RNA sequence: AUGGUGUUACGCCAACAGGUGGAUGGCUCGGCUCAAGAGCUGAUGAAGGACGUGCCAAGCUGCGAUAAGCUCAGGGUAGACGCAAGGAAUCUAUGAACCUGAGAUCUCCUAAUGGGAAUCCCGUUGCCCGUGAGGGUAACGAUCAGUCAUGAUCGGUAACGCCCCGAAUUGAAACAUCUUAGUAGGGGCAGGAAAAGAAAUCAAUAAGAGAUGCCGUUAGUAAAGGCGAUUGAAACCGGCAGAGUUCAAACUGAAUCCGCAGUAGGAAUAUUGCGGAGAUGUGGUUUAUGGCUGACUCUAUUUUCCUAUCUCACCCAAUCAAACUUGCCUGAAACGGCAGACCAUAGAGUGUGAUAGUCACGUCGAUAAAAGUGAACGGAAAAUUGUCAUGUCCUGAGUAGUGUGGGUCGGAAAUCUCGCACGAAUAUGGGGGUCACCAAUCUCCAAAACUAAAUACUCCUUGAGUCCGAUAGCGAAUUAGUAGGGUGACCGAACGCUGAAAAGUACCCCGAGAAGGGAGGUAAAAAGUGCCUGAAACCUGUUGGUUAUAGAAC
Numbered sequence: 001a002u003g004g005u006g007u008u009a010c011g012c013c014a015a016c017a018g019g020u021g022g023a024u025g026g027c028u029c030g031g032c033u034c035a036a037g038a039g040c041u042g043a044u045g046a047a048g049g050a051c052g053u054g055c056c057a058a059g060c061u062g063c064g065a066u067a068a069g070c071u072c073a074g075g076g077u078a079g080a081c082g083c084a085a086g087g088a089a090u091c092u093a094u095g096a097a098c099c100u101g102a103g104a105u106c107u108c109c110u111a112a113u114g115g116g117a118a119u120c121c122c123g124u125u126g127c128c129c130g131u132g133a134g135g136g137u138a139a140c141g142a143u144c145a146g147u148c149a150u151g152a153u154c155g156g157u158a159a160c161g162c163c164c165c166g167a168a169u170u171g172a173a174a175c176a177u178c179u180u181a182g183u184a185g186g187g188g189c190a191g192g193a194a195a196a197g198a199a200a201u202c203a204a205u206a207a208g209a210g211a212u213g214c215c216g217u218u219a220g221u222a223a224a225g226g227c228g229a230u231u232g233a234a235a236c237c238g239g240c241a242g243a244g245u246u247c248a249a250a251c252u253g254a255a256u257c258c259g260c261a262g263u264a265g266g267a268a269u270a271u272u273g274c275g276g277a278g279a280u281g282u283g284g285u286u287u288a289u290g291g292c293u294g295a296c297u298c299u300a301u302u303u304u305c306c307u308a309u310c311u312c313a314c315c316c317a318a319u320c321a322a323a324c325u326u327g328c329c330u331g332a333a334a335c336g337g338c339a340g341a342c343c344a345u346a347g348a349g350u351g352u353g354a355u356a357g358u359c360a361c362g363u364c365g366a367u368a369a370a371a372g373u374g375a376a377c378g379g380a381a382a383a384u385u386g387u388c389a390u391g392u393c394c395u396g397a398g399u400a401g402u403g404u405g406g407g408u409c410g411g412a413a414a415u416c417u418c419g420c421a422c423g424a425a426u427a428u429g430g431g432g433g434u435c436a437c438c439a440a441u442c443u444c445c446a447a448a449a450c451u452a453a454a455u456a457c458u459c460c461u462u463g464a465g466u467c468c469g470a471u472a473g474c475g476a477a478u479u480a481g482u483a484g485g486g487u488g489a490c491c492g493a494a495c496g497c498u499g500a501a502a503a504g505u506a507c508c509c510c511g512a513g514a515a516g517g518g519a520g521g522u523a524a525a526a527a528g529u530g531c532c533u534g535a536a537a538c539c540u541g542u543u544g545g546u547u548a549u550a551g552a553a554c
Stems, first nucleotide, its partner, number of pairs: 011546009025532001026497002030468002032465006038458002047110004051064003070103006079091002114122003142153004160191001161189005171178002201209002213240004223231002243451004251284003261272004293389004303381004318367003324340001326339004343347001349361003401422007429445005484491002
A member of the RNA family "Archaeal large subunit ribosomal RNA" from Methanimicrococcus blatticola, 554 nucleotides of a longer RNA. Pairs were carried over by alignment from the consensus structure, which is taken from published work. A search with the family's covariance model found it, with a score of 2896 bits. On this family, see Yusupov et al., Science 2001: "Crystal structure of the ribosome at 5.5 A resolution". Gene Ontology terms of the family: structural constituent of ribosome and ribosome.